RNA sequence: CACUGCUGAUGACGAACUAUCUCUAACUGGUCUUGACCACGAGCUAGUUCUGAAUUGCAGGG
Numbered sequence: 001c002a003c004u005g006c007u008g009a010u011g012a013c014g015a016a017c018u019a020u021c022u023c024u025a026a027c028u029g030g031u032c033u034u035g036a037c038c039a040c041g042a043g044c045u046a047g048u049u050c051u052g053a054a055u056u057g058c059a060g061g062g
Stems, first nucleotide, its partner, number of pairs: 001062001003060003014050006021043003029038003
The family of this 62-nucleotide sequence is "Selenocysteine insertion sequence 1".
The literature on the family includes a 1996 paper in RNA by Walczak et al., "A novel RNA structural motif in the selenocysteine insertion element of eukaryotic selenoprotein mRNAs".
By type it is a cis-regulatory element.
The base pairs follow the family's consensus structure, which is taken from published work.